[Rfam]
RNA: Guanidine-I riboswitch aptamer
RNA sequence: AGAAUAGCUGACUAGGGUUCCGGCGCCAAAUGGCGCGCGACUGGUCCGAGAGUCAGCGACCUCGAUCGACGCGACGAAAAAGAUUGCGUUUGCAGGUUACACGGCGGGACAAAAGCCCGGGAGAU
Numbered sequence: 001a002g003a004a005u006a007g008c009u010g011a012c013u014a015g016g017g018u019u020c021c022g023g024c025g026c027c028a029a030a031u032g033g034c035g036c037g038c039g040a041c042u043g044g045u046c047c048g049a050g051a052g053u054c055a056g057c058g059a060c061c062u063c064g065a066u067c068g069a070c071g072c073g074a075c076g077a078a079a080a081a082g083a084u085u086g087c088g089u090u091u092g093c094a095g096g097u098u099a100c101a102c103g104g105c106g107g108g109a110c111a112a113a114a115g116c117c118c119g120g121g122a123g124a125u
Stems, first nucleotide, its partner, number of pairs: 007057006015047002020044002022041001023038004027033001058098005065091001100120001102123001106118003